The family of this 131-nucleotide sequence from Glycine soja is "MIR390 microRNA precursor family". The match comes from Rfam's covariance-model search (95 bits).
[Rfam]
RNA sequence: UGGAAGAAUUUGUAAAGCUCAGGAGGGAUAGCGCCAUGGAAGGUCUUUCUACUAAUUUGCUCUAUCAUGGGUGCUUUGGUUCCGAUCAUCUUCUCUAGCGCUAUCCAUCCUGAGUUUCAUGGUUUCUUCAU
Dot-bracket structure: .........(.....(((((((((.(((((((((...............................................................))))))))).))))))))).....).........
Numbered sequence: 001u002g003g004a005a006g007a008a009u010u011u012g013u014a015a016a017g018c019u020c021a022g023g024a025g026g027g028a029u030a031g032c033g034c035c036a037u038g039g040a041a042g043g044u045c046u047u048u049c050u051a052c053u054a055a056u057u058u059g060c061u062c063u064a065u066c067a068u069g070g071g072u073g074c075u076u077u078g079g080u081u082c083c084g085a086u087c088a089u090c091u092u093c094u095c096u097a098g099c100g101c102u103a104u105c106c107a108u109c110c111u112g113a114g115u116u117u118c119a120u121g122g123u124u125u126c127u128u129c130a131u
Stems, first nucleotide, its partner, number of pairs: 010122001016116009026106009
On this family, see Gustafson et al., Nucleic Acids Res 2005: "ASRP: the Arabidopsis Small RNA Project Database". Gene Ontology terms of the family: RISC complex and miRNA-mediated post-transcriptional gene silencing.